Rfam assigns this 76-nucleotide RNA from Moschus moschiferus to the family "Small nucleolar RNA SNORD42". snoRNA U42 is found in intron 3 of the ribosomal protein L23a (RPL23a) gene in humans and is also present in mice. Rfam 15.1 lists 848 matches to the family in 572 species. The family's RNA type in Rfam is C/D-box small nucleolar RNA. The base pairs follow the family's consensus structure, which was predicted with PFOLD. It scores 61 bits against the family's covariance model. Gene Ontology terms of the family: RNA processing and nucleolus.
RNA sequence: GUGCAAAUGAUAGAAAAAAAAAAUCACUGUUUGUAAGGGGAAAAAAAUGACAUGAACAAAGGAACCACUGAUGCAC
Numbered sequence: 001g002u003g004c005a006a007a008u009g010a011u012a013g014a015a016a017a018a019a020a021a022a023a024u025c026a027c028u029g030u031u032u033g034u035a036a037g038g039g040g041a042a043a044a045a046a047a048u049g050a051c052a053u054g055a056a057c058a059a060a061g062g063a064a065c066c067a068c069u070g071a072u073g074c075a076c
Stems, first nucleotide, its partner, number of pairs: 001076005